Annotation:
A member of the RNA family "Mason-Pfizer monkey virus packaging signal" from Nannospalax galili, 274 nucleotides long. NCBI's taxonomy places the organism under Eukaryota, Vertebrata, Mammalia, Theria, Nannospalax. The literature on the family includes a 2004 paper in Virus Res by Mustafa et al., "Mutational analysis of the predicted secondary RNA structure of the Mason-Pfizer monkey virus packaging signal". About the family: This family represents a group of sequences that are related to the Mason-Pfizer monkey virus (MPMV) packaging signal. The family has 9 seed sequences and 2,921 matches in Rfam 15.1.

[Rfam]
RNA sequence: UGGCGCCCAACGUGGGGCUGGAUACGGAGGAUCCAGUGAGGGAAGAAGACGUCCCCAUGGAACAUUCCACAAGAAUUCUUCACUCUGGACUCGCCACGGGAACCUGCCUCGGCUACAACCAGAAGUAAGUACAGAUAUCUGAUUAUGGGACAAGAAUUAAGCAGGCACGAAAUUUAUGUUCGGCAAUUGCAGGAUGCCUUACGGAUGCGAGGAGUAAAGGUUAAAAUAGAGGAUCUAUUGACAUUCUUUGAAUUUAUUAAGGAAACCUGUCCUU
Numbered sequence: 001u002g003g004c005g006c007c008c009a010a011c012g013u014g015g016g017g018c019u020g021g022a023u024a025c026g027g028a029g030g031a032u033c034c035a036g037u038g039a040g041g042g043a044a045g046a047a048g049a050c051g052u053c054c055c056c057a058u059g060g061a062a063c064a065u066u067c068c069a070c071a072a073g074a075a076u077u078c079u080u081c082a083c084u085c086u087g088g089a090c091u092c093g094c095c096a097c098g099g100g101a102a103c104c105u106g107c108c109u110c111g112g113c114u115a116c117a118a119c120c121a122g123a124a125g126u127a128a129g130u131a132c133a134g135a136u137a138u139c140u141g142a143u144u145a146u147g148g149g150a151c152a153a154g155a156a157u158u159a160a161g162c163a164g165g166c167a168c169g170a171a172a173u174u175u176a177u178g179u180u181c182g183g184c185a186a187u188u189g190c191a192g193g194a195u196g197c198c199u200u201a202c203g204g205a206u207g208c209g210a211g212g213a214g215u216a217a218a219g220g221u222u223a224a225a226a227u228a229g230a231g232g233a234u235c236u237a238u239u240g241a242c243a244u245u246c247u248u249u250g251a252a253u254u255u256a257u258u259a260a261g262g263a264a265a266c267c268u269g270u271c272c273u274u
Base pairs, nucleotide, nucleotide: 006030007029012025013024014023037046082126083125084124085122086121091117095111098108099107134151138149139148140147141146158201159200160199161197162196163195208250209249210248211247212246213245214244215243218236219235220234221233222232259274260273261272262271263270